[Rfam]
Glycine riboswitch aptamer: a 133-nucleotide RNA from Candidatus Paraburkholderia kirkii. The match comes from Rfam's covariance-model search (40 bits).

Nucleotides: 133
Base pairs, nucleotide, nucleotide: 007127009125010124011123012122013121020050021049022048023047024046025045052112053111054110055108056107059106060105061104065100066099
Number, partner (000 for none) and nucleotide at each position: 001000u002000c003000c004000u005000c006000g007127c008000a009125c010124u011123c012122u013121g014000g015000a016000g017000a018000g019000c020050g021049g022048c023047a024046g025045c026000g027000g028000c029000u030000u031000c032000g033000u034000c035000g036000a037000a038000c039000c040000a041000g042000c043000c044000g045025g046024c047023u048022g049021c050020c051000c052112a053111c054110c055108g056107a057000a058000g059106g060105g061104g062000c063000g064000c065100g066099c067000g068000a069000u070000g071000a072000a073000c074000c075000g076000c077000c078000g079000c080000a081000c082000g083000c084000a085000c086000g087000u088000g089000c090000a091000c092000g093000g094000u095000u096000c097000g098000c099066g100065c101000a102000a103000u104061c105060u106059c107056u108055c109000a110054g111053g112052u113000a114000c115000c116000g117000a118000g119000g120000a121013c122012a123011g124010a125009g126000g127007g128000g129000u130000c131000a132000c133000g